[Rfam]
RNA sequence: CAGUAACUUCAGGGCAGGGUGCAAUUCCCGACCGGCGGUAAAGCCCGCGAGCCGAAAGGCAGAUCCGGUGAAACUCCGGAGCCGACAGUAUAGUCUGGAUGGGAGAAGUGUUUU
Numbered sequence: 001c002a003g004u005a006a007c008u009u010c011a012g013g014g015c016a017g018g019g020u021g022c023a024a025u026u027c028c029c030g031a032c033c034g035g036c037g038g039u040a041a042a043g044c045c046c047g048c049g050a051g052c053c054g055a056a057a058g059g060c061a062g063a064u065c066c067g068g069u070g071a072a073a074c075u076c077c078g079g080a081g082c083c084g085a086c087a088g089u090a091u092a093g094u095c096u097g098g099a100u101g102g103g104a105g106a107a108g109u110g111u112u113u114u
Base pairs, nucleotide, nucleotide: 003112006109007108008107009106010105017029018028019027031094032093033084034083035048036047037046038045043082044081051060052059053058064080065079066078067077068076086097087096088095